[Rfam]
A member of the RNA family "Small nucleolar RNA SNORD58" from Steinernema carpocapsae, 56 nucleotides long. The organism belongs to Steinernema, within Eukaryota. On this family, see Kiss-Laszlo et al., Cell 1996: "Site-specific ribose methylation of preribosomal RNA: a novel function for small nucleolar RNAs". Rfam classes the family as a C/D-box small nucleolar RNA. snoRNA U58 is found in introns 1, 3 and 6 of the ribosomal protein RPL17 gene in humans. Pairs were carried over by alignment from the consensus structure, which was predicted with PFOLD.

Nucleotides: 056
Base pairs, nucleotide, nucleotide: 001055002054003053004052
Number, partner (000 for none) and nucleotide at each position: 001055u002054u003053g004052c005000a006000a007000u008000g009000a010000u011000g012000a013000c014000a015000a016000c017000u018000u019000a020000g021000g022000a023000c024000a025000c026000c027000u028000u029000u030000g031000g032000a033000u034000u035000u036000u037000c038000c039000g040000u041000g042000a043000a044000a045000g046000c047000a048000c049000u050000g051000a052004g053003c054002a055001a056000g